This 95-nucleotide RNA sequence from Mycoplasmopsis anatis belongs to the Rfam family "TPP riboswitch aptamer (THI element)".
RNA sequence: UUAUCUAGACAGGGGUAUUCACAUCUUGUGGAUUGAGAAACACUCUUAGAGCUGAUCUAGGUAAUGCUAGCGUAGCGAGUCAGUUUUUAAGUUCA
Numbered sequence: 001u002u003a004u005c006u007a008g009a010c011a012g013g014g015g016u017a018u019u020c021a022c023a024u025c026u027u028g029u030g031g032a033u034u035g036a037g038a039a040a041c042a043c044u045c046u047u048a049g050a051g052c053u054g055a056u057c058u059a060g061g062u063a064a065u066g067c068u069a070g071c072g073u074a075g076c077g078a079g080u081c082a083g084u085u086u087u088u089a090a091g092u093u094c095a
Stems, first nucleotide, its partner, number of pairs: 006083001008081003011046004016040001017033005051076004057070004
A search with the family's covariance model found it, with a score of 56 bits.